[Rfam]
RT-5 RNA: a 105-nucleotide sequence. Rfam's curators put it in the seed alignment.
RNA sequence: CCGCGCCUGCUGAAGGAGGCAGCCUUGUCUAGAUGGACGGUUUUGCAGGCAACCCGACAAGGUACCCUCUCGUGAACAGCAAUUUUGCUGAUUCAAAAUUGUUCC
Numbered sequence: 001c002c003g004c005g006c007c008u009g010c011u012g013a014a015g016g017a018g019g020c021a022g023c024c025u026u027g028u029c030u031a032g033a034u035g036g037a038c039g040g041u042u043u044u045g046c047a048g049g050c051a052a053c054c055c056g057a058c059a060a061g062g063u064a065c066c067c068u069c070u071c072g073u074g075a076a077c078a079g080c081a082a083u084u085u086u087g088c089u090g091a092u093u094c095a096a097a098a099u100u101g102u103u104c105c
Stems, first nucleotide, its partner, number of pairs: 005050006015070002018067002022063008039054004077090005